[Rfam]
RNA: nrdJ RNA
Organism: Streptomyces sp. ScaeMP-e10
RNA sequence: ACCUGUUCCCGCGGCCCGACGUGGCCCGCGGGGCGACGGACACACACUGUGCCUGGGAAGAACUGGGCACUUCAGGGCGUU
Numbered sequence: 001a002c003c004u005g006u007u008c009c010c011g012c013g014g015c016c017c018g019a020c021g022u023g024g025c026c027c028g029c030g031g032g033g034c035g036a037c038g039g040a041c042a043c044a045c046a047c048u049g050u051g052c053c054u055g056g057g058a059a060g061a062a063c064u065g066g067g068c069a070c071u072u073c074a075g076g077g078c079g080u081u
Stems, first nucleotide, its partner, number of pairs: 004035004009031006016024002049070006055063001